[Rfam]
RNA sequence: AAGAUUGAAGCAACCAGGAAAGUUCAGGUGCAGUGAUGGGGCGGUUCACAAGUGACAUGGUGGUCAGGCUGCUGAAUGGCAGACAGAGUGAAUGCAGAAUAAACAAGACCUGACAAAACAGUUGAAGAAACCAGGAACAAUAAGUCAAUGAAGCAAAGUGUUCUGCACUAUUUGAAGAAAGCAGGCAGGAUGAACCAAACAUCACUUCAAACCAAUCUUCUAUUUGAAACAGAAAGGAAGUGUUUCAAUGGUAUAUUCAAUUCUUGAAGCUA
Numbered sequence: 001a002a003g004a005u006u007g008a009a010g011c012a013a014c015c016a017g018g019a020a021a022g023u024u025c026a027g028g029u030g031c032a033g034u035g036a037u038g039g040g041g042c043g044g045u046u047c048a049c050a051a052g053u054g055a056c057a058u059g060g061u062g063g064u065c066a067g068g069c070u071g072c073u074g075a076a077u078g079g080c081a082g083a084c085a086g087a088g089u090g091a092a093u094g095c096a097g098a099a100u101a102a103a104c105a106a107g108a109c110c111u112g113a114c115a116a117a118a119c120a121g122u123u124g125a126a127g128a129a130a131c132c133a134g135g136a137a138c139a140a141u142a143a144g145u146c147a148a149u150g151a152a153g154c155a156a157a158g159u160g161u162u163c164u165g166c167a168c169u170a171u172u173u174g175a176a177g178a179a180a181g182c183a184g185g186c187a188g189g190a191u192g193a194a195c196c197a198a199a200c201a202u203c204a205c206u207u208c209a210a211a212c213c214a215a216u217c218u219u220c221u222a223u224u225u226g227a228a229a230c231a232g233a234a235a236g237g238a239a240g241u242g243u244u245u246c247a248a249u250g251g252u253a254u255a256u257u258c259a260a261u262u263c264u265u266g267a268a269g270c271u272a
Stems, first nucleotide, its partner, number of pairs: 002271002005268002008265003024113006044093006053066004069082004121249005131237002138232001141229001142218001144216002150208004159187003163184004189203004
RAGATH-8 RNA: a 272-nucleotide sequence. A reference for the family is Weinberg et al. (2015), "New classes of self-cleaving ribozymes revealed by comparative genomics analysis", Nat Chem Biol.